[Rfam]
RNA sequence: CUUGAUCGAGCCCAGCCACAGCGGUUGCUCGCCGUCCCGGUCCUGGCCGUAGGUGGCCAGCAGGGCCUGCGCCUC
Numbered sequence: 001c002u003u004g005a006u007c008g009a010g011c012c013c014a015g016c017c018a019c020a021g022c023g024g025u026u027g028c029u030c031g032c033c034g035u036c037c038c039g040g041u042c043c044u045g046g047c048c049g050u051a052g053g054u055g056g057c058c059a060g061c062a063g064g065g066c067c068u069g070c071g072c073c074u075c
Stems, first nucleotide, its partner, number of pairs: 014026004033069001038065001043060003047056003
RNA: ASpks TB sRNA
Organism: Amycolatopsis saalfeldensis